[Rfam]
RNA sequence: AUAAAUUAUUAAGAACCUUUUGAAUCAAGUAGUCCAAUGAUUCAAAAGGUUCUCACAA
Numbered sequence: 001a002u003a004a005a006u007u008a009u010u011a012a013g014a015a016c017c018u019u020u021u022g023a024a025u026c027a028a029g030u031a032g033u034c035c036a037a038u039g040a041u042u043c044a045a046a047a048g049g050u051u052c053u054c055a056c057a058a
Stems, first nucleotide, its partner, number of pairs: 010055001012053016
The record is a 58-nucleotide RNA sequence from Lobularia libyca, which matches "Plastid-ccsA-ndhD-1 3UTR RNA" in Rfam. About the family: Plastid-ccsA-ndhD-1 is a non-coding RNA (ncRNA) recognised in plastids. It was found in the three prime untranslated region (3UTR) of ccsA and ndhD genes, its 3UTR location suggests a role in transcript maturation. The family is grouped with related families in Rfam's "Plastid-ccsA_ndhD 3UTR RNA clan". Rfam 15.1 lists 1,322 matches to the family in 557 species. On this family, see Richter et al., Plant Commun 2023: "Retrograde signaling in plants: A critical review focusing on the GUN pathway and beyond".